The record is a 257-nucleotide RNA sequence from Dictyobacter vulcani, which matches "HNH endonuclease-associated RNA and ORF (HEARO) RNA" in Rfam.

Nucleotides: 257
Stems, first nucleotide, its partner, number of pairs: 001079007010030002012027001015025002031042004082243003087114004117237006128229001130227001139172002143166008151253001153251001155248003175220009188210001190208003194203002
Number, partner (000 for none) and nucleotide at each position: 001079g002078u003077c004076a005075g006074g007073u008000a009000c010030c011029c012027c013000a014000c015025g016024c017000c018000u019000c020000u021000g022000c023000g024016g025015c026000g027012g028000g029011g030010g031042c032041u033040u034039g035000g036000a037000g038000a039034u040033g041032g042031g043000g044000u045000g046000a047000u048000u049000g050000c051000u052000g053000c054000c055000c056000g057000u058000c059000u060000u061000c062000u063000c064000c065000a066000g067000g068000u069000c070000c071000g072000g073007a074006c075005c076004u077003g078002a079001c080000c081000a082243g083242a084241c085000c086000c087114a088113g089112c090111c091000a092000g093000g094000g095000g096000u097000g098000c099000u100000u101000g102000c103000a104000u105000c106000c107000a108000u109000c110000g111090g112089g113088c114087u115000a116000c117237g118236a119235u120234a121233c122232c123000g124000g125000a126000g127000g128229u129000g130227u131000c132000a133000a134000a135000g136000a137000a138000c139172c140171u141000a142000c143166c144165a145164a146163c147162g148161c149160g150159u151253g152000c153251u154000u155248g156247c157246c158000a159150g160149c161148g162147c163146g164145u165144u166143g167000c168000u169000c170000u171140a172139g173000a174000a175220c176219u177218u178217c179216u180215c181214a182213g183212u184000u185000a186000a187000u188210c189000a190208g191207u192206c193000a194203g195202a196000c197000g198000g199000g200000g201000u202195u203194c204000g205000a206192g207191g208190c209000c210188g211000u212183g213182c214181u215180g216179a217178g218177a219176a220175g221000a222000u223000g224000u225000g226000c227130a228000g229128g230000c231000c232122g233121g234120u235119a236118u237117c238000a239000u240000c241084g242083u243082c244000g245000a246157g247156g248155c249000a250000c251153a252000c253151u254000u255000u256000a257000c

The match comes from Rfam's covariance-model search (98 bits).
Lineage of the source: Bacteria > Chloroflexota > Ktedonobacteria > Ktedonobacterales > Dictyobacter.
It is annotated as a non-coding RNA gene.